[Rfam]
RNA sequence: ACAAGCUUGAGUGCCAUAGGAGAAGUGCUCAUGGUGUGGCCUGUCAGGUUCCAACGAAUCUGCAAAUUCUGCU
Numbered sequence: 001a002c003a004a005g006c007u008u009g010a011g012u013g014c015c016a017u018a019g020g021a022g023a024a025g026u027g028c029u030c031a032u033g034g035u036g037u038g039g040c041c042u043g044u045c046a047g048g049u050u051c052c053a054a055c056g057a058a059u060c061u062g063c064a065a066a067u068u069c070u071g072c073u
Base pairs, nucleotide, nucleotide: 009041013040014039015038018073019072021070022069023068024067025037026036027035045062046061047060048059049058050057051056